[Rfam]
RNA sequence: CAUCCCUAUGAAGAAUGACUUAUGUCCAAAAUAUUAAAGUAGUGGACUGAUAUAUACAUGAUGAACAAAAGUAUUCUGAGGGAUU
Numbered sequence: 001c002a003u004c005c006c007u008a009u010g011a012a013g014a015a016u017g018a019c020u021u022a023u024g025u026c027c028a029a030a031a032u033a034u035u036a037a038a039g040u041a042g043u044g045g046a047c048u049g050a051u052a053u054a055u056a057c058a059u060g061a062u063g064a065a066c067a068a069a070a071g072u073a074u075u076c077u078g079a080g081g082g083a084u085u
Stems, first nucleotide, its partner, number of pairs: 002084005
Rfam assigns this 85-nucleotide sequence from Spinacia oleracea to the family "Small nucleolar RNA R21".
A search with the family's covariance model found it, with a score of 54 bits.
Rfam links the family to the GO terms RNA processing and nucleolus.